[Rfam]
RNA: U4atac minor spliceosomal RNA
Organism: Cinara cedri
RNA sequence: CGCAUCCUUGAUCCAGGGGAGCGACCGGCUCUAUGAUCGUUUAGUGAGACCGUGCUGCUGACACCCGUAUGGAAAUUACCCGUGCCCGGCGCCCAAGGGCGUCGAGCACAAUUUUUGGACGU
Numbered sequence: 001c002g003c004a005u006c007c008u009u010g011a012u013c014c015a016g017g018g019g020a021g022c023g024a025c026c027g028g029c030u031c032u033a034u035g036a037u038c039g040u041u042u043a044g045u046g047a048g049a050c051c052g053u054g055c056u057g058c059u060g061a062c063a064c065c066c067g068u069a070u071g072g073a074a075a076u077u078a079c080c081c082g083u084g085c086c087c088g089g090c091g092c093c094c095a096a097g098g099g100c101g102u103c104g105a106g107c108a109c110a111a112u113u114u115u116u117g118g119a120c121g122u
Base pairs, nucleotide, nucleotide: 005020006019007018008017009016021058022057023056026052027051028050030049031048038044082109083108084107085106087104088103089102090101091100092099093098